The family of this 144-nucleotide sequence from Gossypium stocksii is "MIR7502 microRNA precursor family". Rfam links the family to the GO terms RISC complex and miRNA-mediated post-transcriptional gene silencing. Lineage of the source: Eukaryota > Streptophyta > Magnoliopsida > Mesangiospermae > Gossypium. The family's consensus secondary structure was predicted with RNAalifold. A search with the family's covariance model found it, with a score of 85 bits.
[Rfam]
RNA sequence: UAUUAAAGUUUUUAUCUAUUUGUAUUGUUAAAAACUGAAUUGACUGAUAGAAUACCUAGAUAAUGACACAUGACGUGCCAUAUGUACCUUAUGUUGAUGUCUAAAAACUAAUUUUUAAUUGUAGAAAUGCAUGAAAAUUUAACA
Numbered sequence: 001u002a003u004u005a006a007a008g009u010u011u012u013u014a015u016c017u018a019u020u021u022g023u024a025u026u027g028u029u030a031a032a033a034a035c036u037g038a039a040u041u042g043a044c045u046g047a048u049a050g051a052a053u054a055c056c057u058a059g060a061u062a063a064u065g066a067c068a069c070a071u072g073a074c075g076u077g078c079c080a081u082a083u084g085u086a087c088c089u090u091a092u093g094u095u096g097a098u099g100u101c102u103a104a105a106a107a108c109u110a111a112u113u114u115u116u117a118a119u120u121g122u123a124g125a126a127a128u129g130c131a132u133g134a135a136a137a138u139u140u141a142a143c144a
Base pairs, nucleotide, nucleotide: 003142004141005140006139007138009137010136011135012134013133014132015131018128019127020126021125023123024122025121028118029117030116031115032114033113